Description:
Shown here is a 65-nucleotide sequence from Anhinga rufa, a member of the family "Selenocysteine insertion sequence 1". Gene Ontology term of the family: selenocysteine incorporation. The family's RNA type in Rfam is cis-regulatory element. Rfam's curators write: The incorporation of selenocysteine into a protein sequence is directed by an in-frame UGA codon (usually a stop codon) within the coding region of the mRNA. Selenoprotein mRNAs contain a conserved secondary structure in the 3' UTR that is required for the distinction of UGA stop from UGA selenocysteine. The selenocysteine insertion sequence (SECIS) is around 60 nt in length and adopts a hairpin structure which is sufficiently well-defined and conserved to act as a computational screen for selenoprotein genes. Pairs were carried over by alignment from the consensus structure, which is taken from published work. A search with the family's covariance model found it, with a score of 35 bits.
[Rfam]
RNA sequence: CAGCCCCAAUGACGGUCUGUCUUCAAGCCAGCUUGCUGGUGAGGCAGACCCGAAGAUCUGGCGUG
Numbered sequence: 001c002a003g004c005c006c007c008a009a010u011g012a013c014g015g016u017c018u019g020u021c022u023u024c025a026a027g028c029c030a031g032c033u034u035g036c037u038g039g040u041g042a043g044g045c046a047g048a049c050c051c052g053a054a055g056a057u058c059u060g061g062c063g064u065g
Base pairs, nucleotide, nucleotide: 001065002064005061014050015049016048017047018046019045020044021043022042023041029038030037031036